[Rfam]
The record is a 74-nucleotide RNA sequence from Myotis lucifugus, which matches "mir-9193 microRNA precursor family" in Rfam.

RNA sequence: CUUGGGGGUGGUGGUUCCCUCAGCUUGGAUUGCAAGAGGGCACAGGCCAGGCCGAGGGACCCCACCAGUGCACA
Numbered sequence: 001c002u003u004g005g006g007g008g009u010g011g012u013g014g015u016u017c018c019c020u021c022a023g024c025u026u027g028g029a030u031u032g033c034a035a036g037a038g039g040g041c042a043c044a045g046g047c048c049a050g051g052c053c054g055a056g057g058g059a060c061c062c063c064a065c066c067a068g069u070g071c072a073c074a
Base pairs, nucleotide, nucleotide: 003072004071006069010065013062014061016059017058018057019056020055021054023052024051025050027048028047030045031044032043

Rfam 15.1 lists 6,008 matches to the family in 8 species.